[Rfam]
The family of this 120-nucleotide RNA from Dipodomys ordii is "Small nucleolar RNA SNORA40". The family's RNA type in Rfam is H/ACA-box small nucleolar RNA. The base pairs follow the family's consensus structure, which was predicted with RNAalifold. The snoRNA ACA 40 belongs to the H/ACA family of snoRNAs and guides the pseudouridylation of 28S rRNA subunit at position U4565. Rfam links the family to the GO terms nucleolus and RNA processing.
RNA sequence: UGUGUCUGUGUGUUUGAUUUGUAACAAAACUUUAGAGACAGGUACAAACAGUAAAUUCUCUUUUGCAACCUGGAACUCAUUGUUGAAUACGAAAUUUUGGUGCAUGUAAAAUGGAAUAUG
Numbered sequence: 001u002g003u004g005u006c007u008g009u010g011u012g013u014u015u016g017a018u019u020u021g022u023a024a025c026a027a028a029a030c031u032u033u034a035g036a037g038a039c040a041g042g043u044a045c046a047a048a049c050a051g052u053a054a055a056u057u058c059u060c061u062u063u064u065g066c067a068a069c070c071u072g073g074a075a076c077u078c079a080u081u082g083u084u085g086a087a088u089a090c091g092a093a094a095u096u097u098u099g100g101u102g103c104a105u106g107u108a109a110a111a112u113g114g115a116a117u118a119u120g
Stems, first nucleotide, its partner, number of pairs: 001046009011036001016030001018028004055117005061111005071099005077092002080089001
Notes:
For this family Rfam cites "Mapping to nucleotide resolution of pseudouridine residues in large subunit ribosomal RNAs from representative eukaryotes, prokaryotes, archaebacteria, mitochondria and chloroplasts" (Ofengand and Bakin, J Mol Biol, 1997). Lineage of the source: Eukaryota > Gnathostomata > Rodentia > Dipodomyinae > Dipodomys.